This 86-nucleotide sequence from Stutzerimonas stutzeri belongs to the Rfam family "ivy-DE RNA". Taxonomically the source falls in Stutzerimonas stutzeri (Bacteria, Pseudomonadati, Pseudomonadaceae, Stutzerimonas).
RNA sequence: GAACCAGGGGGUCGGGUUGUUCUGCAAAAGCGGAGCGACCUAGGGGUACAUGGAGUACCUCCAUAACGGACCGGGUUCUGCGAGGC
Number, nucleotide and partner (000 for none) at each position: 001g078002a077003a076004c075005c074006a000007g000008g000009g000010g072011g071012u070013c069014g041015g040016g039017u038018u037019g000020u035021u034022c033023u032024g031025c030026a000027a000028a000029a000030g025031c024032g023033g022034a021035g020036c000037g018038a017039c016040c015041u014042a000043g061044g060045g059046g058047u057048a056049c055050a000051u000052g000053g000054a000055g049056u048057a047058c046059c045060u044061c043062c000063a000064u000065a000066a000067c000068g000069g013070a012071c011072c010073g000074g005075g004076u003077u002078c001079u000080g000081c000082g000083a000084g000085g000086c000